[Rfam]
RNA sequence: CCCUGUUCUCAGGGCAGGGUGUAAUUCCCUACCGGUGGUAAAGUAUUUUUGAUACAAGCCCACGAGCGUUUAUCUAUUUUUUAAUAGAUAAAGUCAGCAGAUUUGGUGAAACUCCAAAGCCGACAGUGAUAGUCUGGAUGAAAGAGAAUUUCA
Numbered sequence: 001c002c003c004u005g006u007u008c009u010c011a012g013g014g015c016a017g018g019g020u021g022u023a024a025u026u027c028c029c030u031a032c033c034g035g036u037g038g039u040a041a042a043g044u045a046u047u048u049u050u051g052a053u054a055c056a057a058g059c060c061c062a063c064g065a066g067c068g069u070u071u072a073u074c075u076a077u078u079u080u081u082u083a084a085u086a087g088a089u090a091a092a093g094u095c096a097g098c099a100g101a102u103u104u105g106g107u108g109a110a111a112c113u114c115c116a117a118a119g120c121c122g123a124c125a126g127u128g129a130u131a132g133u134c135u136g137g138a139u140g141a142a143a144g145a146g147a148a149u150u151u152c153a
Stems, first nucleotide, its partner, number of pairs: 005149006017029003031133002033122002035063004058120002066098002102118005124136003
A member of the RNA family "FMN riboswitch aptamer (RFN element)" from Bisgaardia hudsonensis, 153 nucleotides long. Lineage of the source: Bacteria > Pseudomonadota > Gammaproteobacteria > Pasteurellales > Bisgaardia.